The record is a 67-nucleotide RNA sequence from Pseudolycoriella hygida, which matches "Small nucleolar RNA SNORD109A" in Rfam.
From the family's description: Humans have two copies of the SNORD109 gene, SNORD109A and SNORD109B.
Its family is annotated with nucleolus and RNA processing in the Gene Ontology.
The family's RNA type in Rfam is C/D-box small nucleolar RNA.
The literature on the family includes a 2001 paper in Hum Mol Genet by Runte et al., "The IC-SNURF-SNRPN transcript serves as a host for multiple small nucleolar RNA species and as an antisense RNA for UBE3A".
It scores 39 bits against the family's covariance model.
RNA sequence: GGAUCGAUGAUGGAAAUAGAUGUUUAUUGAUGCAAAAAGAUGCAAAACAGAUGGAAAUUCGAGGUCA
Numbered sequence: 001g002g003a004u005c006g007a008u009g010a011u012g013g014a015a016a017u018a019g020a021u022g023u024u025u026a027u028u029g030a031u032g033c034a035a036a037a038a039g040a041u042g043c044a045a046a047a048c049a050g051a052u053g054g055a056a057a058u059u060c061g062a063g064g065u066c067a
Base pairs, nucleotide, nucleotide: 002066003065004064005063